[Rfam]
RNA sequence: CGUAAAGGUUCAAAGGCUAAGCACGCCACGUCCUGUGGCAACGCCUUUGUGACCAACAUCGUGUUGG
Numbered sequence: 001c002g003u004a005a006a007g008g009u010u011c012a013a014a015g016g017c018u019a020a021g022c023a024c025g026c027c028a029c030g031u032c033c034u035g036u037g038g039c040a041a042c043g044c045c046u047u048u049g050u051g052a053c054c055a056a057c058a059u060c061g062u063g064u065u066g067g
Stems, first nucleotide, its partner, number of pairs: 011049007025039005053067005

Description
Shown here is a 67-nucleotide RNA from Lentibacillus salicampi, a member of the family "Bacillaceae-1 RNA". It is annotated as a small RNA.